[Rfam]
This 97-nucleotide sequence from Liparis tanakae belongs to the Rfam family "Vault RNA". Rfam classes the family as a non-coding RNA gene. Lineage of the source: Eukaryota > Actinopterygii > Actinopteri > Clupeocephala > Liparis.

RNA sequence: GCAUUGGUUUAGCUCAGUGGUUACUUCCUCAAAUCUUUCAGAUUACGUGGUUCUCUCCCUUCCUGGGAUCAAACCUCGGGCGCAGUCCAGUGUUUUC
Numbered sequence: 001g002c003a004u005u006g007g008u009u010u011a012g013c014u015c016a017g018u019g020g021u022u023a024c025u026u027c028c029u030c031a032a033a034u035c036u037u038u039c040a041g042a043u044u045a046c047g048u049g050g051u052u053c054u055c056u057c058c059c060u061u062c063c064u065g066g067g068a069u070c071a072a073a074c075c076u077c078g079g080g081c082g083c084a085g086u087c088c089a090g091u092g093u094u095u096u097c
Stems, first nucleotide, its partner, number of pairs: 002092006012081004017077001019075002025073002